[Rfam]
This 141-nucleotide RNA sequence belongs to the Rfam family "Nematode snoRNA ceN88".
By type it is an H/ACA-box small nucleolar RNA.
Its family is annotated with RNA processing and nucleolus in the Gene Ontology.
For this family Rfam cites "Systematic identification of non-coding RNA 2,2,7-trimethylguanosine cap structures in Caenorhabditis elegans" (Jia et al., BMC Mol Biol, 2007).
RNA sequence: UAUCUCUCGUCUUGGCGCUUCUACUGAUACAUGUGGAAUGUGUAUGUUACGAGAGAAAAAGUGGUGCCGUUUGGCUGUCGUGUCUCCUUCGGUGUUUGUCUUGAAUUUCGACAAAUGUCAUCCUCUGGGCUCGAAACAAUU
Dot-bracket structure: ..((((((((....((((..((((........))))...)))).....)))))))).........(((....)))..(((.((((.....((..((((((.........))))))..)).......)))).))).......